The family of this 102-nucleotide RNA from Rhodopseudomonas faecalis is "Rhizobiales-2 RNA". It scores 99 bits against the family's covariance model. Pairs were carried over by alignment from the consensus structure, which is taken from published work.
[Rfam]
Nucleotides: 102
Stems, first nucleotide, its partner, number of pairs: 001016005021071002024069007033061005073102011
Number, partner (000 for none) and nucleotide at each position: 001016g002015g003014g004013a005012g006000c007000a008000g009000g010000a011000u012005c013004u014003c015002c016001c017000c018000u019000u020000a021071g022070g023000g024069g025068c026067c027066g028065u029064a030063u031000u032000c033061g034060g035059c036058g037057c038000g039000u040000g041000c042000g043000c044000c045000c046000a047000u048000c049000c050000a051000c052000c053000c054000a055000a056000a057037g058036c059035g060034c061033c062000a063030a064029u065028a066027u067026g068025g069024c070022u071021c072000a073102g074101a075100c076099c077098c078097g079096c080095c081094c082093g083092g084000u085000u086000g087000u088000c089000c090000c091000c092083c093082c094081g095080g096079g097078c098077g099076g100075g101074u102073c